Description:
Shown here is a 118-nucleotide RNA sequence from Oleiphilus sp. HI0079, a member of the family "Ribosomal S15 leader". Pairs were carried over by alignment from the consensus structure, which is taken from published work. About the family: The E. coli Ribosomal S15 gene 5' UTR can form two alternative structures. One that is a series of three hairpins, The other includes a pseudoknot. This structure causes translational regulation of the S15 protein. The alignment of this family contains only the final two hairpins which are conserved in other species, and also includes the complete region that forms the alternate structures. On this family, see Benard et al., Biochimie 1996: "Pseudoknot and translational control in the expression of the S15 ribosomal protein".

RNA sequence: GCCCUAAACUGUACGUAUGCGCGGUUUCUGGGUUUUAACUUAGCAUAUUGAGGAAAAUAUCAUGGCACUAAGUGCAGCUGAAAAAGCAGAAAUUCUUAAAGAUUACCAACAAGCUGAA
Numbered sequence: 001g002c003c004c005u006a007a008a009c010u011g012u013a014c015g016u017a018u019g020c021g022c023g024g025u026u027u028c029u030g031g032g033u034u035u036u037a038a039c040u041u042a043g044c045a046u047a048u049u050g051a052g053g054a055a056a057a058u059a060u061c062a063u064g065g066c067a068c069u070a071a072g073u074g075c076a077g078c079u080g081a082a083a084a085a086g087c088a089g090a091a092a093u094u095c096u097u098a099a100a101g102a103u104u105a106c107c108a109a110c111a112a113g114c115u116g117a118a
Stems, first nucleotide, its partner, number of pairs: 007026006046072001048070001050068001052066001
Gene Ontology term of the family: regulation of translation, ncRNA-mediated. The family's RNA type in Rfam is cis-regulatory leader. Its Rfam clan is "Ribosomal Protein S15 Leader clan".